[Rfam]
RNA sequence: GGGCUUGCGCAGCGGCGCAGGCGGUCCUAGAUUGAACCCGUCCGGGGCAACCCGGACUAUGGGCAUAAACGCGCAGGUAAUAAGCGGAUUGGACCCGGGGGCGGUACCCGGCGGCUCCACCAGACCACCCUCGUUGGGGGAAAAUGGGGCCGAAACAGGAUCGACAAACGUCUAAAGCUGUUUGCUUUGUCUCGGUGAGCUACCACCGUUAUCGGUGCAAAAAGUACAGUUGCCAACGACAACCGUGCUCCGGUGGCUCUGGCUGCGUAAGCAGCUCGGGUAACCGAAACCUAAGCCCUGUCGCUUAGCCGCGGCAGGCGGGGCCCCCAGGCGCCUGGCAACAGAAGCCUGGGACU
Numbered sequence: 001g002g003g004c005u006u007g008c009g010c011a012g013c014g015g016c017g018c019a020g021g022c023g024g025u026c027c028u029a030g031a032u033u034g035a036a037c038c039c040g041u042c043c044g045g046g047g048c049a050a051c052c053c054g055g056a057c058u059a060u061g062g063g064c065a066u067a068a069a070c071g072c073g074c075a076g077g078u079a080a081u082a083a084g085c086g087g088a089u090u091g092g093a094c095c096c097g098g099g100g101g102c103g104g105u106a107c108c109c110g111g112c113g114g115c116u117c118c119a120c121c122a123g124a125c126c127a128c129c130c131u132c133g134u135u136g137g138g139g140g141a142a143a144a145u146g147g148g149g150c151c152g153a154a155a156c157a158g159g160a161u162c163g164a165c166a167a168a169c170g171u172c173u174a175a176a177g178c179u180g181u182u183u184g185c186u187u188u189g190u191c192u193c194g195g196u197g198a199g200c201u202a203c204c205a206c207c208g209u210u211a212u213c214g215g216u217g218c219a220a221a222a223a224g225u226a227c228a229g230u231u232g233c234c235a236a237c238g239a240c241a242a243c244c245g246u247g248c249u250c251c252g253g254u255g256g257c258u259c260u261g262g263c264u265g266c267g268u269a270a271g272c273a274g275c276u277c278g279g280g281u282a283a284c285c286g287a288a289a290c291c292u293a294a295g296c297c298c299u300g301u302c303g304c305u306u307a308g309c310c311g312c313g314g315c316a317g318g319c320g321g322g323g324c325c326c327c328c329a330g331g332c333g334c335c336u337g338g339c340a341a342c343a344g345a346a347g348c349c350u351g352g353g354a355c356u
Stems, first nucleotide, its partner, number of pairs: 040057007061192005071185002073181004085170002089167003095111005112152007193208004199218002202216003321336004327352006
Record summary: Rfam assigns this 356-nucleotide RNA sequence from Paracoccus contaminans to the family "Alphaproteobacteria transfer-messenger RNA". Bacterial tmRNA, also known as 10Sa RNA or SsrA, is named for its dual tRNA and mRNA-like properties. Its role is to liberate the mRNA from a stalled ribosome. The family is grouped with related families in Rfam's "tRNA clan". The match comes from Rfam's covariance-model search (276 bits). Taxonomically the source falls in Paracoccus (Bacteria, Pseudomonadota, Rhodobacterales, Paracoccaceae).